[Rfam]
Annotation: A member of the RNA family "traJ-II RNA" from Thauera sinica, 103 nucleotides long. Pairs were carried over by alignment from the consensus structure, which is taken from published work. The source organism's lineage runs through Bacteria, Pseudomonadati, Pseudomonadota, Rhodocyclales and Thauera.

RNA sequence: GGGCAGGAUGGGCGAAGUUGGCUAACCGGCAAGCCGGUCAUCCCCCUUCGCUUUGGCCUUAUUCGCGCCGGGGGCGCUCAACGGAAUCCUGCUCUGCGAGGCC
Numbered sequence: 001g002g003g004c005a006g007g008a009u010g011g012g013c014g015a016a017g018u019u020g021g022c023u024a025a026c027c028g029g030c031a032a033g034c035c036g037g038u039c040a041u042c043c044c045c046c047u048u049c050g051c052u053u054u055g056g057c058c059u060u061a062u063u064c065g066c067g068c069c070g071g072g073g074g075c076g077c078u079c080a081a082c083g084g085a086a087u088c089c090u091g092c093u094c095u096g097c098g099a100g101g102c103c
Stems, first nucleotide, its partner, number of pairs: 001094009012051006020043002025038005057084002065077005